[Rfam]
RNA sequence: CUUAAUUAUCAGGAAUUUUUCUAAAAACAAGUAGAAAAAUAGCAACCUGCAACAACAAGCAAGGUGCUGCAAACGAUAAGCCAGUAAUGGAAAAAAUGUUGUAUAU
Numbered sequence: 001c002u003u004a005a006u007u008a009u010c011a012g013g014a015a016u017u018u019u020u021c022u023a024a025a026a027a028c029a030a031g032u033a034g035a036a037a038a039a040u041a042g043c044a045a046c047c048u049g050c051a052a053c054a055a056c057a058a059g060c061a062a063g064g065u066g067c068u069g070c071a072a073a074c075g076a077u078a079a080g081c082c083a084g085u086a087a088u089g090g091a092a093a094a095a096a097u098g099u100u101g102u103a104u105a106u
Base pairs, nucleotide, nucleotide: 006079007078008077009076010075015040016039017038018037019036020035021034022033023032041068042067043066046064047063048062049060050059055100081090082089083088
Dot-bracket structure: .....(((((....(((((((((........)))))))))(((..(((((....[...)).))).)))......))))).(((....))).........]......
Source information
The record is a 106-nucleotide RNA from Myroides odoratus, which matches "SAM-I/IV (S-adenosyl methionine) riboswitch aptamer" in Rfam. Rfam 15.1 lists 567 matches to the family in 508 species. Lineage of the source: Bacteria > Pseudomonadati > Flavobacteriales > Flavobacteriaceae > Myroides.